This 117-nucleotide sequence from Candidatus Competibacter denitrificans belongs to the Rfam family "ALIL pseudoknot". It is annotated as a cis-regulatory element. Lineage of the source: Bacteria > Pseudomonadati > Pseudomonadota > Candidatus Competibacteraceae > Candidatus Competibacter denitrificans. A search with the family's covariance model found it, with a score of 112 bits.

[Rfam]
RNA sequence: GGCAUAUUUUGCCCAGGCGGCGCUCGACCGCCCAUCCAAACGAUGAACGCCUUCAUCGACACCCACCGUGGCGUUGAUGGGGUCGAGCCGAUCUGCAAGGUGUUGCCGAUUGCCCCA
Numbered sequence: 001g002g003c004a005u006a007u008u009u010u011g012c013c014c015a016g017g018c019g020g021c022g023c024u025c026g027a028c029c030g031c032c033c034a035u036c037c038a039a040a041c042g043a044u045g046a047a048c049g050c051c052u053u054c055a056u057c058g059a060c061a062c063c064c065a066c067c068g069u070g071g072c073g074u075u076g077a078u079g080g081g082g083u084c085g086a087g088c089c090g091a092u093c094u095g096c097a098a099g100g101u102g103u104u105g106c107c108g109a110u111u112g113c114c115c116c117a
Base pairs, nucleotide, nucleotide: 016032017031018030019029020028078117079116080115081114082113089112090111092109093108095106096105097104098103